Overview: Shown here is an 86-nucleotide RNA from Paenibacillus apis, a member of the family "c-di-GMP-I riboswitch aptamer". From the family's description: GEMM was predicted in a large-scale screen for bacterial structured RNA regulatory elements. Lineage of the source: Bacteria > Bacillati > Bacilli > Caryophanales > Paenibacillus. It scores 74 bits against the family's covariance model.
Nucleotides: 086
Stems, first nucleotide, its partner, number of pairs: 012037002017032006040080004047076002049072003056066003
Number, partner (000 for none) and nucleotide at each position: 001000u002000u003000a004000a005000u006000a007000a008000u009000u010000c011000g012037g013036c014000a015000a016000a017032c018031c019030u020029a021028u022027u023000g024000a025000a026000a027022a028021g029020u030019a031018g032017g033000g034000a035000c036013g037012c038000a039000a040080a041079g042078c043077u044000a045000u046000a047076g048075g049072g050071a051070c052000u053000a054000a055000a056066u057065c058064c059000g060000g061000u062000a063000a064058g065057g066056a067000u068000a069000a070051g071050u072049c073000a074000g075048c076047c077043a078042g079041u080040u081000g082000c083000a084000g085000g086000u